[Rfam]
RNA sequence: CUGGGAGGAAGCUCGCCAUAGAGGCCACGUGCUGGGUGUUUGUCACUCGUCUUGCGCCUCUGGGAAGGUCUGAGAGAAGGGCCAUGUACCAUCCUAGCAGGGUGCCGCCUCUUGGAGGCGGGUGAGUUCCCAGCGAUGUGGGUCUCCGGCUCAGCCUGCGAUCGGGGCAGGAGAAGCGGUGGAAGGGCUCGAUCCUUUCCCCGUGGAUGCCUCUGUGGCGUGAUGGGGAUUUGGGAAUGACUCACGGCCAGCAACUCUGAGUACAAUGGGCAGAGGUGAAGCAAAGCGGCAGCAGCUUCAUAACCCAAUUCAGACUAGUCUCCCCCCAG
Dot-bracket structure: ((((..(((..[[[.[[..(((((.........(((((.....)))))........)))))........(((((.....((((......(((((.....)))))((((((.....))))))(((((((.............(((((((...........................................................................)))))))........)))))))))))...................]]..]]](((((((............))))))).......))))).......)))..))))
Background:
This 329-nucleotide RNA sequence from Salvator merianae belongs to the Rfam family "Nuclear RNase P". Rfam links the family to the GO terms ribonuclease P activity, ribonuclease P complex and tRNA processing. The match comes from Rfam's covariance-model search (194 bits). From the family's description: Ribonuclease P (RNase P) is a ubiquitous endoribonuclease, found in archaea, bacteria and eukarya as well as chloroplasts and mitochondria.